RNA: TPP riboswitch aptamer (THI element)
Nucleotides: 110
Base pairs, nucleotide, nucleotide: 006098007097008096009095010094011060012059013058014057017033018032019031020030021029040054041053042052043051044050065090066089067088071084072083073082074081
Number, partner (000 for none) and nucleotide at each position: 001000a002000g003000c004000c005000g006098u007097u008096c009095c010094g011060a012059g013058g014057g015000g016000g017033g018032u019031c020030c021029c022000c023000g024000c025000a026000g027000g028000g029021g030020g031019g032018g033017c034000u035000g036000a037000g038000a039000u040054a041053c042052g043051g044050g045000c046000g047000u048000u049000u050044c051043c052042c053041g054040u055000g056000a057014c058013c059012c060011u061000u062000g063000a064000a065090c066089c067088u068000g069000a070000u071084c072083c073082g074081g075000g076000u077000c078000a079000u080000g081074c082073c083072g084071g085000c086000g087000a088067a089066g090065g091000g092000a093000c094010u095009g096008g097007a098006a099000c100000c101000g102000g103000c104000g105000c106000g107000c108000g109000u110000c